[Rfam]
RNA: MIR162_1 microRNA precursor family
RNA sequence: GUGAGAGUCGCUGGAGGCAGCGGUUCAUCGAUCUCUUCCUGUGAACACAUUAAAAAUGUAAAAGCAUGAAUAGAUCGAUAAACCUCUGCAUCCAGCGUUUGCCUC
Numbered sequence: 001g002u003g004a005g006a007g008u009c010g011c012u013g014g015a016g017g018c019a020g021c022g023g024u025u026c027a028u029c030g031a032u033c034u035c036u037u038c039c040u041g042u043g044a045a046c047a048c049a050u051u052a053a054a055a056a057u058g059u060a061a062a063a064g065c066a067u068g069a070a071u072a073g074a075u076c077g078a079u080a081a082a083c084c085u086c087u088g089c090a091u092c093c094a095g096c097g098u099u100u101g102c103c104u105c
Stems, first nucleotide, its partner, number of pairs: 013093003018088003022084004027079007036070003
Dot-bracket structure: ............(((..(((.((((.(((((((..(((.............................)))..))))))).)))).)))..)))............